[Rfam]
RNA: transfer-messenger RNA
Organism: Deferribacter desulfuricans
RNA sequence: GGGGGCGAAAGGUUUCGACGGGGAAAUCGUAGGCUUAAGGAGCAUGCCGAGGUCUGGUGCCUCGUAAAACAACCAGACAAAAAUAGUUGCAAACGACGAACUUGCACUCGCUGCUUAAUUAGACAGCGACGUCCACCUGAGGCUUGCCUGCGGCUUCAGGCUGGGCGCCAAUUUAGCAGGCUUUGCCUACUGUGACGCCUCUAAGCAGUAGGCGAGAUUUUAGAGGCUUGCUGCUGGAUACCCUGCCUAUGGGGUCGCCAGCAGGACUAAAAAAACAUAGGCUAAGCAUGUAGCGCCUUAAGCCGAAGUUUCCUCGGACGCGGGUUCGAUUCCCGCCGCCUCCAUAA
Number, nucleotide and partner (000 for none) at each position: 001g343002g342003g341004g340005g339006c338007g337008a000009a000010a000011g000012g000013u000014u000015u000016c000017g000018a000019c316020g315021g314022g313023g312024a311025a310026a309027u308028c000029g000030u000031a000032g304033g303034c302035u301036u300037a299038a298039g297040g296041a000042g294043c290044a289045u288046g287047c286048c064049g063050a062051g061052g060053u077054c076055u075056g074057g073058u072059g000060c052061c051062u050063c049064g048065u000066a000067a000068a000069a000070c000071a000072a058073c057074c056075a055076g054077a053078c000079a000080a000081a000082a000083a000084u000085a000086g000087u000088u000089g000090c000091a000092a000093a000094c000095g000096a000097c000098g000099a000100a000101c000102u000103u000104g000105c000106a000107c000108u129109c128110g127111c126112u125113g124114c000115u000116u000117a000118a000119u000120u000121a000122g000123a000124c113125a112126g111127c110128g109129a108130c167131g166132u165133c164134c163135a162136c160137c159138u158139g157140a000141g155142g154143c153144u152145u000146g181147c180148c179149u178150g177151c176152g144153g143154c142155u141156u000157c139158a138159g137160g136161c000162u135163g134164g133165g132166c131167g130168c000169c000170a000171a000172u000173u000174u000175a000176g151177c150178a149179g148180g147181c146182u000183u000184u000185g213186c212187c211188u210189a209190c208191u207192g206193u205194g000195a000196c000197g227198c226199c225200u224201c223202u000203a000204a000205g193206c192207a191208g190209u189210a188211g187212g186213c185214g000215a000216g000217a000218u000219u000220u000221u000222a000223g201224a200225g199226g198227c197228u000229u000230g000231c264232u263233g262234c261235u260236g259237g258238a000239u000240a000241c254242c253243c252244u000245g282246c281247c280248u279249a000250u275251g000252g243253g242254g241255u000256c000257g000258c237259c236260a235261g234262c233263a232264g231265g000266a000267c000268u000269a000270a000271a000272a000273a000274a000275a250276c000277a000278u000279a248280g247281g246282c245283u000284a000285a000286g047287c046288a045289u044290g043291u000292a000293g000294c042295g000296c040297c039298u038299u037300a036301a035302g034303c033304c032305g000306a000307a000308g027309u026310u025311u024312c023313c022314u021315c020316g019317g000318a000319c000320g336321c335322g334323g333324g332325u000326u000327c000328g000329a000330u000331u000332c324333c323334c322335g321336c320337c007338g006339c005340c004341u003342c002343c001344a000345u000346a000347a000